[Rfam]
Shown here is a 46-nucleotide sequence from Streptomyces sp. ICBB 8177, a member of the family "L31-Actinobacteria ribosomal protein leader".
Rfam classes the family as a cis-regulatory leader.
NCBI's taxonomy places the organism under Bacteria, Bacillati, Actinomycetota, Kitasatosporales, Streptomyces.
RNA sequence: CUGGCCCCGGUUCACGAUGCGCAAUCCCGCGCCUCGACCCGGAGCC
Dot-bracket structure: ..(((.((((....(((.((((......)))).)))..)))).)))